[Rfam]
The record is a 117-nucleotide RNA from Beta vulgaris, which matches "Small nucleolar RNA snoR104" in Rfam.
The source organism's lineage runs through Eukaryota, Streptophyta, Tracheophyta, eudicotyledons and Beta vulgaris.
Rfam 15.1 lists 612 matches to the family in 228 species.
Pairs were carried over by alignment from the consensus structure, which was predicted with WAR.
Its family is annotated with nucleolus and RNA processing in the Gene Ontology.
A reference for the family is Marker et al. (2002), "Experimental RNomics: identification of 140 candidates for small non-messenger RNAs in the plant Arabidopsis thaliana", Curr Biol.
RNA sequence: GAAUGGCAUCUAUAAGCAUGAGAUGUUAUCCGAUACAAUCUUCCUACAAAAAUUUCUGCAUUUCCUUUUCGCAGUUCUGAAGUUAAUUCUGCGAGUCUCAAACUGACAGAAACAUUG
Dot-bracket structure: (.(.(((((((.........))))))).).).......................(((..........(((((((...(......)...)))))))............))).......